[Rfam]
Shown here is a 148-nucleotide RNA sequence from Sedimentibacter sp. zth1, a member of the family "glmS glucosamine-6-phosphate activated ribozyme aptamer". Rfam classes the family as a riboswitch. Its family is annotated with regulation of gene expression and catalytic activity in the Gene Ontology.
RNA sequence: GUUAAUAUAUAAGCGCCUGAACUUAUUUAAGUUGACGAGGACAGAGAAAUUCGAAAAUUCGGCGGGUACUCUGCGGCAUGCUUGGUCGUUAGAUUUUCACCAAAGCUUUUAGGUAACUAAAAGAACAAUAUGAAAAUCAUGAGCAUUA
Numbered sequence: 001g002u003u004a005a006u007a008u009a010u011a012a013g014c015g016c017c018u019g020a021a022c023u024u025a026u027u028u029a030a031g032u033u034g035a036c037g038a039g040g041a042c043a044g045a046g047a048a049a050u051u052c053g054a055a056a057a058u059u060c061g062g063c064g065g066g067u068a069c070u071c072u073g074c075g076g077c078a079u080g081c082u083u084g085g086u087c088g089u090u091a092g093a094u095u096u097u098c099a100c101c102a103a104a105g106c107u108u109u110u111a112g113g114u115a116a117c118u119a120a121a122a123g124a125a126c127a128a129u130a131u132g133a134a135a136a137u138c139a140u141g142a143g144c145a146u147u148a
Base pairs, nucleotide, nucleotide: 020033021032022031023030024029042073043072044071045070046069051062052061053060054059074088075087076086077085092138093137094136095135096134097133098132106123107122108121109120110119111118112117